[Rfam]
RNA sequence: UCCACCGCGGGGUGGAAUCUGAAGGAGGUCGGCGACAAAGCUCUGGUCUGACGAACAGAAACUACAUAUAAGGCAUACGCUUGAAAGUGAGUUUGCACAACAAAACAAAGCCCAAAGACUAUCCGAAACAGGCGGUGUAAAUGUAGCAGAUAUAUAGAGUGGAAGAUUACGCU
Numbered sequence: 001u002c003c004a005c006c007g008c009g010g011g012g013u014g015g016a017a018u019c020u021g022a023a024g025g026a027g028g029u030c031g032g033c034g035a036c037a038a039a040g041c042u043c044u045g046g047u048c049u050g051a052c053g054a055a056c057a058g059a060a061a062c063u064a065c066a067u068a069u070a071a072g073g074c075a076u077a078c079g080c081u082u083g084a085a086a087g088u089g090a091g092u093u094u095g096c097a098c099a100a101c102a103a104a105a106c107a108a109a110g111c112c113c114a115a116a117g118a119c120u121a122u123c124c125g126a127a128a129c130a131g132g133c134g135g136u137g138u139a140a141a142u143g144u145a146g147c148a149g150a151u152a153u154a155u156a157g158a159g160u161g162g163a164a165g166a167u168u169a170c171g172c173u
Stems, first nucleotide, its partner, number of pairs: 001016006028173001030171002036165001040160006046151005062146006073138003078134006087111002091106004